[Rfam]
RNA sequence: GCGCAGUGGGUCUGUGGUUGAAAGUCGAUGCCAGUCGCAGGCGAAGCGAUCCACGUAAGCGGGAAAUAUUUCCGUGAUCAUAGUGCGGCCUAGAUGUAAGUCCAACCGGAGCGAUCCGAGAGGGGUAGUAGUGGGGAGCGAAAUCAGCUUAUGAGCGAACCUUCCAGUUGGCGGGUGUGGGGUUAAAAACCAGGUCAGACACUGCGG
Numbered sequence: 001g002c003g004c005a006g007u008g009g010g011u012c013u014g015u016g017g018u019u020g021a022a023a024g025u026c027g028a029u030g031c032c033a034g035u036c037g038c039a040g041g042c043g044a045a046g047c048g049a050u051c052c053a054c055g056u057a058a059g060c061g062g063g064a065a066a067u068a069u070u071u072c073c074g075u076g077a078u079c080a081u082a083g084u085g086c087g088g089c090c091u092a093g094a095u096g097u098a099a100g101u102c103c104a105a106c107c108g109g110a111g112c113g114a115u116c117c118g119a120g121a122g123g124g125g126u127a128g129u130a131g132u133g134g135g136g137a138g139c140g141a142a143a144u145c146a147g148c149u150u151a152u153g154a155g156c157g158a159a160c161c162u163u164c165c166a167g168u169u170g171g172c173g174g175g176u177g178u179g180g181g182g183u184u185a186a187a188a189a190c191c192a193g194g195u196c197a198g199a200c201a202c203u204g205c206g207g
Stems, first nucleotide, its partner, number of pairs: 002206007012198003015192005028178003031041001034089006050083001055078001058075001061072003081185001102171005107118004122164004131156002137149003
Record summary: This 207-nucleotide RNA belongs to the Rfam family "raiA RNA". Rfam's curators put it in the seed alignment.